RNA: Trypanosomatid snoRNA TB10Cs1H1
Organism: Strigomonas culicis
RNA sequence: CAUCCCAUUUAAUAGCGAGUAGCCCUCUGGCAUUUCCGCAAGCUAAUCGUCUACACCGUGGGAGAGAGC
Numbered sequence: 001c002a003u004c005c006c007a008u009u010u011a012a013u014a015g016c017g018a019g020u021a022g023c024c025c026u027c028u029g030g031c032a033u034u035u036c037c038g039c040a041a042g043c044u045a046a047u048c049g050u051c052u053a054c055a056c057c058g059u060g061g062g063a064g065a066g067a068g069c
Base pairs, nucleotide, nucleotide: 003063004062005061006060007059008058015050016049017048018047020045021044022043023042